[Rfam]
RNA sequence: AUCUUUGCGCAGCGGCAGUACCUUAUCCAAUGAGCGUUUCGCGAGGAGAGGUUAUUGCUAGUUGAAAACUAAAACCCAAUAUCCCGCACAAUUGACCUUGUGUCGAUUGCUGCAAUUUUUGCUGCUUCUUCGGAGG
Numbered sequence: 001a002u003c004u005u006u007g008c009g010c011a012g013c014g015g016c017a018g019u020a021c022c023u024u025a026u027c028c029a030a031u032g033a034g035c036g037u038u039u040c041g042c043g044a045g046g047a048g049a050g051g052u053u054a055u056u057g058c059u060a061g062u063u064g065a066a067a068a069c070u071a072a073a074a075c076c077c078a079a080u081a082u083c084c085c086g087c088a089c090a091a092u093u094g095a096c097c098u099u100g101u102g103u104c105g106a107u108u109g110c111u112g113c114a115a116u117u118u119u120u121g122c123u124g125c126u127u128c129u130u131c132g133g134a135g136g
Base pairs, nucleotide, nucleotide: 020052021051022050023049024048026047027046028045034042035041036040086113087112088111089109090108091107092106093105094104095103096102127136128135129134
RNA: U4 spliceosomal RNA